RNase MRP: a 281-nucleotide sequence from Hibiscus syriacus.

RNA sequence: CAACUACGAGACGAAGUGAAUGGGUCGAGACCUGUGUCAUCGACGCGGUCAAGACCCAGGAAAGUCCCCGGGCCCGCCCCUGCAGAGAUGCAGUCUCGGAAACGGGUAAAACUUCAGAUCGGUGGAGUCUGUUCUUUGGUCCCGAAAGGGGUUUAAAGACGUGGCUGAGACAUGUGUGGAGCCUCUAUGGCCCCAUCGCUGAAGCAAUUUGGCCGAAUAUACACAGUUAUUCACGUGGUCCCUAACCGGACUAACUGAACGGGGCUUACGAUCUCGUAGUU
Numbered sequence: 001c002a003a004c005u006a007c008g009a010g011a012c013g014a015a016g017u018g019a020a021u022g023g024g025u026c027g028a029g030a031c032c033u034g035u036g037u038c039a040u041c042g043a044c045g046c047g048g049u050c051a052a053g054a055c056c057c058a059g060g061a062a063a064g065u066c067c068c069c070g071g072g073c074c075c076g077c078c079c080c081u082g083c084a085g086a087g088a089u090g091c092a093g094u095c096u097c098g099g100a101a102a103c104g105g106g107u108a109a110a111a112c113u114u115c116a117g118a119u120c121g122g123u124g125g126a127g128u129c130u131g132u133u134c135u136u137u138g139g140u141c142c143c144g145a146a147a148g149g150g151g152u153u154u155a156a157a158g159a160c161g162u163g164g165c166u167g168a169g170a171c172a173u174g175u176g177u178g179g180a181g182c183c184u185c186u187a188u189g190g191c192c193c194c195a196u197c198g199c200u201g202a203a204g205c206a207a208u209u210u211g212g213c214c215g216a217a218u219a220u221a222c223a224c225a226g227u228u229a230u231u232c233a234c235g236u237g238g239u240c241c242c243u244a245a246c247c248g249g250a251c252u253a254a255c256u257g258a259a260c261g262g263g264g265c266u267u268a269c270g271a272u273c274u275c276g277u278a279g280u281u
Stems, first nucleotide, its partner, number of pairs: 002281010014236001016234004022057005033047006062267003066264004081092004117134002120131003136207003143198003148194006163183003172177001238251004

Background: A reference for the family is Walker and Avis (2005), "Secondary structure probing of the human RNase MRP RNA reveals the potential for MRP RNA subsets", Biochem Biophys Res Commun. Lineage of the source: Eukaryota > Streptophyta > Magnoliopsida > Gunneridae > Hibiscus. From the family's description: RNase MRP is an enzymatically active ribonucleoprotein with two distinct roles in eukaryotes. By type it is a ribozyme.